[Rfam]
RNA sequence: ACAGAAUCUCAAGCGCCUGGACCGGCCUUCGGCCGGUUGACGAGGAAGGGGUUUAUCGAGUUUUUCGGCGGGUGCCCCUCGGUGGCCCACCACCGUGAGGAUGCCUUGAAAAGCGGAGAGCAAUCCCCGUGACAAAGGGGUAUCCGGUGGGUGAA
Number, nucleotide and partner (000 for none) at each position: 001a000002c000003a000004g000005a000006a000007u000008c000009u000010c000011a000012a000013g000014c000015g000016c000017c000018u000019g000020g038021a037022c036023c035024g034025g033026c032027c031028u000029u000030c000031g027032g026033c025034c024035g023036g022037u021038u020039g000040a000041c000042g000043a000044g000045g000046a000047a079048g078049g077050g076051g075052u000053u000054u000055a000056u068057c067058g066059a065060g000061u000062u000063u000064u000065u059066c058067g057068g056069c000070g000071g000072g000073u000074g000075c051076c050077c049078c048079u047080c095081g094082g093083u092084g091085g090086c000087c000088c000089a000090c085091c084092a083093c082094c081095g080096u000097g000098a000099g145100g144101a143102u142103g141104c140105c139106u000107u000108g000109a000110a000111a000112a000113g130114c129115g128116g127117a000118g125119a124120g000121c000122a000123a000124u119125c118126c000127c116128c115129g114130u113131g000132a000133c000134a000135a000136a000137g000138g000139g105140g104141u103142a102143u101144c100145c099146g000147g000148u000149g000150g000151g000152u000153g000154a000155a000
RNA: glmS glucosamine-6-phosphate activated ribozyme aptamer
Organism: Thermacetogenium phaeum